Rfam assigns this 61-nucleotide RNA from Caproicibacterium amylolyticum to the family "GP20-b RNA". The family's RNA type in Rfam is cis-regulatory element. It scores 38 bits against the family's covariance model. Lineage of the source: Bacteria > Bacillati > Bacillota > Oscillospiraceae > Caproicibacterium.
[Rfam]
RNA sequence: UGACCGGCCGAAGUCGUUAAACUACGGAGCGGCAGAGGAACGGGACCUCGUAAAAAACGUG
Number, nucleotide and partner (000 for none) at each position: 001u016002g015003a014004c013005c000006g000007g000008c027009c026010g025011a000012a023013g004014u003015c002016g001017u000018u000019a000020a000021a000022c000023u012024a000025c010026g009027g008028a000029g000030c000031g000032g000033c000034a000035g049036a048037g047038g000039a000040a000041c000042g000043g000044g000045a000046c000047c037048u036049c035050g000051u000052a000053a000054a000055a000056a000057a000058c000059g000060u000061g000